[Rfam]
Rfam assigns this 387-nucleotide RNA from Microcella putealis to the family "Bacterial RNase P class A". It scores 279 bits against the family's covariance model. The family's consensus secondary structure is taken from published work. The source organism's lineage runs through Bacteria, Actinomycetota, Actinomycetes, Micrococcales and Microcella. It is annotated as a ribozyme.
RNA sequence: CGGGUCGACCAGACGGUCGCGUCGGAUGCGCGCCCCGAGUAAUCGGGGAACGGCACCGCCGAGGAACGUCCGGGCUCCACAGAGCAGGGCGGUGGGUAACACCCACCCGGAGCAAUCCGCGAGAAAGUGCAACAGAGAGCAGACCGCCGGCGGCUUCGGCCGCCGGUAAGGGUGAAACGGUGGUGUAAGAGACCACCAGAGCCCCGAGUGAUCGGGGCUGCUGGGUAAACCUCGCCCGGAGCUAGAUCAGACAGGCACCCGUGACGCUGCUCGCCGAGGUGCCGGGUAGAUCGCUAGAGGGUGUCGGCAACGCCACCCCGAGAUAGAUGGCCGUCCCUCAGGGCUGAGCCCCGAGGACAGAACCCGGCGUAUCGGUCGGCCCGCUUG
Numbered sequence: 001c002g003g004g005u006c007g008a009c010c011a012g013a014c015g016g017u018c019g020c021g022u023c024g025g026a027u028g029c030g031c032g033c034c035c036c037g038a039g040u041a042a043u044c045g046g047g048g049a050a051c052g053g054c055a056c057c058g059c060c061g062a063g064g065a066a067c068g069u070c071c072g073g074g075c076u077c078c079a080c081a082g083a084g085c086a087g088g089g090c091g092g093u094g095g096g097u098a099a100c101a102c103c104c105a106c107c108c109g110g111a112g113c114a115a116u117c118c119g120c121g122a123g124a125a126a127g128u129g130c131a132a133c134a135g136a137g138a139g140c141a142g143a144c145c146g147c148c149g150g151c152g153g154c155u156u157c158g159g160c161c162g163c164c165g166g167u168a169a170g171g172g173u174g175a176a177a178c179g180g181u182g183g184u185g186u187a188a189g190a191g192a193c194c195a196c197c198a199g200a201g202c203c204c205c206g207a208g209u210g211a212u213c214g215g216g217g218c219u220g221c222u223g224g225g226u227a228a229a230c231c232u233c234g235c236c237c238g239g240a241g242c243u244a245g246a247u248c249a250g251a252c253a254g255g256c257a258c259c260c261g262u263g264a265c266g267c268u269g270c271u272c273g274c275c276g277a278g279g280u281g282c283c284g285g286g287u288a289g290a291u292c293g294c295u296a297g298a299g300g301g302u303g304u305c306g307g308c309a310a311c312g313c314c315a316c317c318c319c320g321a322g323a324u325a326g327a328u329g330g331c332c333g334u335c336c337c338u339c340a341g342g343g344c345u346g347a348g349c350c351c352c353g354a355g356g357a358c359a360g361a362a363c364c365c366g367g368c369g370u371a372u373c374g375g376u377c378g379g380c381c382c383g384c385u386u387g
Stems, first nucleotide, its partner, number of pairs: 001383010011372001012335007020061002023058003027055003066370003070367005075241004082272004087237005092106005107121001108119004122232002127230002129226002144171002146167009179197006199221001200219008245292004254283006266274002299318005305312002